The family of this 203-nucleotide RNA from Insectozyma verbasci is "Small nucleolar RNA snR43". The family is grouped with related families in Rfam's "SNORA9 clan". Pairs were carried over by alignment from the consensus structure, which is taken from published work. The literature on the family includes a 1996 paper in Cell by Balakin et al., "The RNA world of the nucleolus: two major families of small RNAs defined by different box elements with related functions".
RNA sequence: UGCCCCUGUUUCUGCCCUACAGUCUUUUGUUGAUAGAGUGAUUCAGGUUCUGGUGAUGGGGUAAAUCAAGCCAAACAAUGAAUAAUUAACCAAUUUUGAUACAACCGGUUUUUAUUUAUUGUUUGGAUCGUGUGAUGACUUUGUUAUCCUUGUGUGAUUUAUUAGUUAUUAUGACUAAGAAUCUGAUCGGUCUCACUAUAUUU
Number, nucleotide and partner (000 for none) at each position: 001u000002g000003c061004c060005c059006c058007u000008g000009u000010u000011u000012c000013u000014g000015c000016c047017c046018u045019a042020c040021a039022g000023u037024c036025u035026u000027u000028u000029g000030u000031u000032g000033a000034u000035a025036g024037a023038g000039u021040g020041a000042u019043u000044c000045a018046g017047g016048u000049u000050c000051u000052g000053g000054u000055g000056a000057u000058g006059g005060g004061g003062u000063a000064a000065a000066u000067c000068a000069a000070g000071c126072c125073a124074a123075a122076c121077a120078a119079u118080g117081a116082a115083u114084a113085a112086u000087u000088a110089a109090c108091c107092a000093a000094u000095u000096u000097u000098g000099a000100u000101a000102c000103a000104a000105c000106c000107g091108g090109u089110u088111u000112u085113u084114a083115u082116u081117u080118a079119u078120u077121g076122u075123u074124u073125g072126g071127a000128u000129c000130g000131u000132g196133u195134g194135a193136u000137g192138a191139c190140u189141u000142u000143g000144u000145u000146a000147u000148c000149c000150u000151u000152g000153u000154g000155u000156g182157a000158u000159u180160u000161a000162u177163u000164a176165g175166u174167u173168a172169u000170u000171a000172u168173g167174a166175c165176u164177a162178a000179g000180a159181a000182u156183c000184u000185g000186a000187u000188c000189g140190g139191u138192c137193u135194c134195a133196c132197u000198a000199u000200a000201u000202u000203u000